[Rfam]
RNA sequence: AUGGAGUCACCGCCUAAACGGCUGUCGGGGCCAACGGAUCUCGGCUGUCGUGCCGGGGACCCACAGGUUCGUCUGGGGUGAAUCCGCGAAGGCCCCGUGUCUUCGUGGUAGGGCCGAUCUUCCCGGCCCGAACCCGUCAGCUAACCCGGUCGGCGGGAGAGCAGGAAGAU
Numbered sequence: 001a002u003g004g005a006g007u008c009a010c011c012g013c014c015u016a017a018a019c020g021g022c023u024g025u026c027g028g029g030g031c032c033a034a035c036g037g038a039u040c041u042c043g044g045c046u047g048u049c050g051u052g053c054c055g056g057g058g059a060c061c062c063a064c065a066g067g068u069u070c071g072u073c074u075g076g077g078g079u080g081a082a083u084c085c086g087c088g089a090a091g092g093c094c095c096c097g098u099g100u101c102u103u104c105g106u107g108g109u110a111g112g113g114c115c116g117a118u119c120u121u122c123c124c125g126g127c128c129c130g131a132a133c134c135c136g137u138c139a140g141c142u143a144a145c146c147c148g149g150u151c152g153g154c155g156g157g158a159g160a161g162c163a164g165g166a167a168g169a170u
Base pairs, nucleotide, nucleotide: 011155012154013153014152018051019050020049021048022047052150053149054148055147056146057145062075063074076135077134078133084108085107086106087105088104089103090102091101111129112128113127114126
A member of the RNA family "c-di-AMP riboswitch aptamer (ydaO/yuaA leader)" from Nocardia puris, 170 nucleotides long. Taxonomically the source falls in Nocardia (Bacteria, Bacillati, Actinomycetes, Nocardiaceae).